RNA sequence: GUAGGCGCUAUAGCCAAGUGGUUACGGCGACAGAUUAGAAAUCUGUUCCUCUUUGAGGGCGCAGGUUCGAAUCCUGCUGGCGUCGCUUAUUUUU
Numbered sequence: 001g002u003a004g005g006c007g008c009u010a011u012a013g014c015c016a017a018g019u020g021g022u023u024a025c026g027g028c029g030a031c032a033g034a035u036u037a038g039a040a041a042u043c044u045g046u047u048c049c050u051c052u053u054u055g056a057g058g059g060c061g062c063a064g065g066u067u068c069g070a071a072u073c074c075u076g077c078u079g080g081c082g083u084c085g086c087u088u089a090u091u092u093u094u
Stems, first nucleotide, its partner, number of pairs: 002089006013081004018077004028069003
Source information: A member of the RNA family "Vault RNA" from Amanita muscaria, 94 nucleotides long. The family's RNA type in Rfam is non-coding RNA gene. About the family: This family of RNAs are found as part of the enigmatic vault ribonucleoprotein complex. The literature on the family includes a 2009 paper in Mol Biol Evol by Stadler et al., "Evolution of Vault RNAs".